Annotation:
Small nucleolar RNA SNORA44: a 129-nucleotide RNA from Sciurus vulgaris. Its family is annotated with nucleolus and RNA processing in the Gene Ontology. ACA44 is a member of the H/ACA class of snoRNA that guide the sites of modification of uridines to pseudouridines.

RNA sequence: CAGGCUGUUUCCCUGGCAGUGGCACUUUGUGGCCAUGGACUCCCCAGCUGCAUGCAAGAGCAACAUGAGACACAUUGGCAGCUUCAGGCAGCACAAUAGCUGCAGCUGCCACUCACCUUUCCUAUGAUG
Numbered sequence: 001c002a003g004g005c006u007g008u009u010u011c012c013c014u015g016g017c018a019g020u021g022g023c024a025c026u027u028u029g030u031g032g033c034c035a036u037g038g039a040c041u042c043c044c045c046a047g048c049u050g051c052a053u054g055c056a057a058g059a060g061c062a063a064c065a066u067g068a069g070a071c072a073c074a075u076u077g078g079c080a081g082c083u084u085c086a087g088g089c090a091g092c093a094c095a096a097u098a099g100c101u102g103c104a105g106c107u108g109c110c111a112c113u114c115a116c117c118u119u120u121c122c123u124a125u126g127a128u129g
Base pairs, nucleotide, nucleotide: 011038012037015034016033017032019030020029021028067121068120069119070118081109082108085102086101087100